Rfam assigns this 129-nucleotide sequence to the family "Alphaproteobacterial ar14". Gene Ontology term of the family: biological process involved in symbiotic interaction. About the family: Smr14C2 was renamed NfeR1 (Nodule Formation Efficiency RNA) highly expressed in salt stress and during the symbiotic interaction on legume roots. It scores 59 bits against the family's covariance model. It is annotated as a small RNA.

RNA sequence: CGACCUCUUGGUGGCCACCACCUCCUCCUAGUGGCCACCAUGACCUCUUGGUGGCCACCACCUCCUCCUAGUGGCCACCACCACGACCUCUUGGUGGCCACCACCUCCUCCUAGUGGCCACCAGCAUGA
Numbered sequence: 001c002g003a004c005c006u007c008u009u010g011g012u013g014g015c016c017a018c019c020a021c022c023u024c025c026u027c028c029u030a031g032u033g034g035c036c037a038c039c040a041u042g043a044c045c046u047c048u049u050g051g052u053g054g055c056c057a058c059c060a061c062c063u064c065c066u067c068c069u070a071g072u073g074g075c076c077a078c079c080a081c082c083a084c085g086a087c088c089u090c091u092u093g094g095u096g097g098c099c100a101c102c103a104c105c106u107c108c109u110c111c112u113a114g115u116g117g118c119c120a121c122c123a124g125c126a127u128g129a
Stems, first nucleotide, its partner, number of pairs: 007042001009040001011038007049080010091124011